RNA sequence: CCUUUUCUAUGUGCACCCGUUUAACCGAGACCUAUGGGUGGGUAAAUUACGUCUCUCAUAUCCAUCAGUGAAGGGAUUGAUGGAAAUAUAGUAUCGC
Numbered sequence: 001c002c003u004u005u006u007c008u009a010u011g012u013g014c015a016c017c018c019g020u021u022u023a024a025c026c027g028a029g030a031c032c033u034a035u036g037g038g039u040g041g042g043u044a045a046a047u048u049a050c051g052u053c054u055c056u057c058a059u060a061u062c063c064a065u066c067a068g069u070g071a072a073g074g075g076a077u078u079g080a081u082g083g084a085a086a087u088a089u090a091g092u093a094u095c096g097c
Base pairs, nucleotide, nucleotide: 014040015039016038017037018036019035020034027055028054029053030052031051062083063082064081065080066079067078068077
Shown here is a 97-nucleotide RNA sequence from Thaumasvirus stim4, a member of the family "PhotoRC-II RNA".